[Rfam]
RNA sequence: AAUCCCUAUGAUGACUUAUUAGUAAAAUUGUUAAAAGUAGUGACUGAUAUCUUCUUGAUUAAAAACUAUCAGGUCUGAGGGGUU
Numbered sequence: 001a002a003u004c005c006c007u008a009u010g011a012u013g014a015c016u017u018a019u020u021a022g023u024a025a026a027a028u029u030g031u032u033a034a035a036a037g038u039a040g041u042g043a044c045u046g047a048u049a050u051c052u053u054c055u056u057g058a059u060u061a062a063a064a065a066c067u068a069u070c071a072g073g074u075c076u077g078a079g080g081g082g083u084u
Base pairs, nucleotide, nucleotide: 001084002083003082004081005080006079

Rfam assigns this 84-nucleotide RNA sequence from Raphanus sativus to the family "Small nucleolar RNA R21". Its family is annotated with nucleolus and RNA processing in the Gene Ontology. Pairs were carried over by alignment from the consensus structure, which was predicted with PFOLD. NCBI's taxonomy places the organism under Eukaryota, Euphyllophyta, Spermatophyta, malvids, Raphanus. Rfam classes the family as a C/D-box small nucleolar RNA. For this family Rfam cites "Identification of 66 box C/D snoRNAs in Arabidopsis thaliana: extensive gene duplications generated multiple isoforms predicting new ribosomal RNA 2'-O-methylation sites" (Barneche et al., J Mol Biol, 2001).